[Rfam]
RNA sequence: GGUGCGGGCAUCCAUUCUCGUAGUACGCAGGCGCAUUGGCAACGUGGGGUGAAACCCCGCGCGAUUGCUGGUGCGCCGAACACAGGUCCCGAAUGGGGCCUUUUUUAUUGCCUUUU
Dot-bracket structure: ..(.(.................).).(((((((((((((....((((((.....)))))).......))))))))))....(.(((((((....))))))))......))).....
The family of this 116-nucleotide RNA from Devosia limi is "Rhizobiales sRNA Atu_C8". The match comes from Rfam's covariance-model search (56 bits). On this family, see Wilms et al., RNA Biol 2012: "Deep sequencing uncovers numerous small RNAs on all four replicons of the plant pathogen Agrobacterium tumefaciens".